[Rfam]
mraW RNA: a 111-nucleotide sequence from Allokutzneria albata.
Nucleotides: 111
Base pairs, nucleotide, nucleotide: 008100009099010098011097013095014094018090019089021087022086023085025083026082027081028080029079030078031077032076039074040073041072042071044069045068046067047066048065049064050063051062
Number, partner (000 for none) and nucleotide at each position: 001000u002000g003000g004000c005000u006000c007000g008100g009099g010098u011097g012000c013095c014094g015000u016000g017000a018090g019089g020000c021087c022086u023085c024000g025083g026082u027081c028080c029079g030078c031077u032076c033000g034000a035000a036000c037000c038000c039074u040073c041072g042071g043000u044069c045068c046067u047066g048065g049064u050063g051062c052000a053000c054000c055000u056000u057000c058000c059000c060000c061000g062051g063050u064049a065048c066047c067046a068045g069044g070000c071042c072041c073040g074039a075000c076032g077031a078030g079029c080028g081027g082026g083025c084000g085023g086022g087021g088000a089019c090018c091000u092000g093000g094014c095013g096000a097011c098010a099009c100008c101000c102000g103000a104000c105000g106000c107000g108000c109000g110000g111000u
Notes
A search with the family's covariance model found it, with a score of 55 bits.